[Rfam]
RNA sequence: UCCACGGAACGACGCGUUGAUCCGGGCAGUCACCGCCGACUCGCACACCCGAGCCGGCGAUAUCGGUCGCCAGACCGUCCGGGGAGCCAGUGGCGAGACCGCCGUUCGCACGA
Dot-bracket structure: ((....(((((..((......((((((.(...................................[[[[[[[...).))))))...))....]]]]]..]]..)))))....))